[Rfam]
RNA sequence: ACACCACUAGCACAAAUCGGAUCCUGGGAAACAGGCAGAACUUCGGUUCGUAAGCUCGGGUAGGCCGUCAACCUACCGCCGUAUCGUAUUGUGUUUGGCC
Numbered sequence: 001a002c003a004c005c006a007c008u009a010g011c012a013c014a015a016a017u018c019g020g021a022u023c024c025u026g027g028g029a030a031a032c033a034g035g036c037a038g039a040a041c042u043u044c045g046g047u048u049c050g051u052a053a054g055c056u057c058g059g060g061u062a063g064g065c066c067g068u069c070a071a072c073c074u075a076c077c078g079c080c081g082u083a084u085c086g087u088a089u090u091g092u093g094u095u096u097g098g099c100c
Base pairs, nucleotide, nucleotide: 004098005097006096009095010094011093012092013091014090015089017086019085020084023035024034025033026032038049039048040047041046054082055081059077060076061075062074063073064072